[Rfam]
RNA sequence: UUCCGGCUGUCCAUAAGCCGGGAUUACUGAAGAGGCACACCUUCAUUGCCUGUAGUGCGGAUGGGUACAUCCAAGCCAAGGCAGACAAAGCGGAUUUACGCUGGUUUCAGCGUCGGUCCAUCGCCGCAUGAAAAGUCUCGUGGU
Numbered sequence: 001u002u003c004c005g006g007c008u009g010u011c012c013a014u015a016a017g018c019c020g021g022g023a024u025u026a027c028u029g030a031a032g033a034g035g036c037a038c039a040c041c042u043u044c045a046u047u048g049c050c051u052g053u054a055g056u057g058c059g060g061a062u063g064g065g066u067a068c069a070u071c072c073a074a075g076c077c078a079a080g081g082c083a084g085a086c087a088a089a090g091c092g093g094a095u096u097u098a099c100g101c102u103g104g105u106u107u108c109a110g111c112g113u114c115g116g117u118c119c120a121u122c123g124c125c126g127c128a129u130g131a132a133a134a135g136u137c138u139c140g141u142g143g144u
Stems, first nucleotide, its partner, number of pairs: 001023008034050004057124003076084001093107002096104002

This 144-nucleotide sequence from Phyllobacterium sp. YR620 belongs to the Rfam family "speF leader". From the family's description: This family is a putative regulatory RNA structure that is found upstream of the speF gene encoding ornithine decarboxylase in Agrobacterium tumefaciens and other alpha-proteobacteria. Pairs were carried over by alignment from the consensus structure, which was predicted with RNAalifold.